A member of the RNA family "SAM-III riboswitch aptamer (SMK box)" from Enterococcus florum, 84 nucleotides long. Pairs were carried over by alignment from the consensus structure, which is taken from published work.
RNA sequence: GUUCGUUGCAGGUUCCCGAUAGGCUCUGGAGGACUCCAGAGAUGCCUUGUAACCGAAUAAAUAUUAGGGGGAAUAGGAAAAAUG
Numbered sequence: 001g002u003u004c005g006u007u008g009c010a011g012g013u014u015c016c017c018g019a020u021a022g023g024c025u026c027u028g029g030a031g032g033a034c035u036c037c038a039g040a041g042a043u044g045c046c047u048u049g050u051a052a053c054c055g056a057a058u059a060a061a062u063a064u065u066a067g068g069g070g071g072a073a074u075a076g077g078a079a080a081a082a083u084g
Base pairs, nucleotide, nucleotide: 013073014072015071016070017069021047022046023045025040026039027038028037029036053068054067
It scores 64 bits against the family's covariance model. The source organism's lineage runs through Bacteria, Bacillati, Bacillota, Lactobacillales and Enterococcus.